[Rfam]
Shown here is a 218-nucleotide RNA sequence from Brevundimonas sp. SH203, a member of the family "permuted transfer-messenger RNA". By type it is a non-coding RNA gene. The base pairs follow the family's consensus structure, which is taken from published work.
RNA sequence: GGCGAUAAACGCGCUUGUAAUAAGCGGACCGGACCCGGGUGCGAUUCCCGGCGGCUCCACCAAUCUUCUCCCCGCGUUAUCGGCGGAGGCAUCAUGGGGCCGACUAGCAUCGACGGACGUGUAAAGAGGAUUGCUUUCGCUCGUCCUGGCCCACCGUAUCGGGCCAUUUUCUAACUGCGAACGAUAACUUCGCUGGAGAAGUCGCUCUCGCCGCGUAA
Numbered sequence: 001g002g003c004g005a006u007a008a009a010c011g012c013g014c015u016u017g018u019a020a021u022a023a024g025c026g027g028a029c030c031g032g033a034c035c036c037g038g039g040u041g042c043g044a045u046u047c048c049c050g051g052c053g054g055c056u057c058c059a060c061c062a063a064u065c066u067u068c069u070c071c072c073c074g075c076g077u078u079a080u081c082g083g084c085g086g087a088g089g090c091a092u093c094a095u096g097g098g099g100c101c102g103a104c105u106a107g108c109a110u111c112g113a114c115g116g117a118c119g120u121g122u123a124a125a126g127a128g129g130a131u132u133g134c135u136u137u138c139g140c141u142c143g144u145c146c147u148g149g150c151c152c153a154c155c156g157u158a159u160c161g162g163g164c165c166a167u168u169u170u171c172u173a174a175c176u177g178c179g180a181a182c183g184a185u186a187a188c189u190u191c192g193c194u195g196g197a198g199a200a201g202u203c204g205c206u207c208u209c210g211c212c213g214c215g216u217a218a
Base pairs, nucleotide, nucleotide: 001141002140003139004138005137014129015128016127025119026118029116030115031114035051036050037049038048039047052102053101054100055099056098057097058096142156143155